[Rfam]
RNA sequence: GGAAUCCCGUCUGGGUAAGCGUUAGCCGCGCGCCCAGUAUCGAGUGUUGCAGGCUUCGUAUAGGCACCAUGAGCUGAAGUCGAAGUUUGAAGCGUACACAGAAAGGUAAUGAGGAUGAAGCGCUCGUAGGUGGCCCUGCGACGUUGAAUGGAUUUUAGCCCCGAAAUUUGGUAACUGUUGGAUCCUGCCCAAGGUUUGUGCAUCCCUGAAGGCAACAUCGCUUGCAGCGUCAUUCGGCGAGCAGCAAGCGGAGACCCGGGGUCGGCGGCCC
Numbered sequence: 001g002g003a004a005u006c007c008c009g010u011c012u013g014g015g016u017a018a019g020c021g022u023u024a025g026c027c028g029c030g031c032g033c034c035c036a037g038u039a040u041c042g043a044g045u046g047u048u049g050c051a052g053g054c055u056u057c058g059u060a061u062a063g064g065c066a067c068c069a070u071g072a073g074c075u076g077a078a079g080u081c082g083a084a085g086u087u088u089g090a091a092g093c094g095u096a097c098a099c100a101g102a103a104a105g106g107u108a109a110u111g112a113g114g115a116u117g118a119a120g121c122g123c124u125c126g127u128a129g130g131u132g133g134c135c136c137u138g139c140g141a142c143g144u145u146g147a148a149u150g151g152a153u154u155u156u157a158g159c160c161c162c163g164a165a166a167u168u169u170g171g172u173a174a175c176u177g178u179u180g181g182a183u184c185c186u187g188c189c190c191a192a193g194g195u196u197u198g199u200g201c202a203u204c205c206c207u208g209a210a211g212g213c214a215a216c217a218u219c220g221c222u223u224g225c226a227g228c229g230u231c232a233u234u235c236g237g238c239g240a241g242c243a244g245c246a247a248g249c250g251g252a253g254a255c256c257c258g259g260g261g262u263c264g265g266c267g268g269c270c271c
Stems, first nucleotide, its partner, number of pairs: 012036004019031004023240001025238002038104001040102002044099004048094002050089009155265001158262006181256001183254002186252001187213003192207003218251008227242002
Rfam assigns this 271-nucleotide RNA sequence from Rubripirellula lacrimiformis to the family "Group II catalytic intron D1-D4-6". The base pairs follow the family's consensus structure. The organism belongs to Rubripirellula, within Bacteria.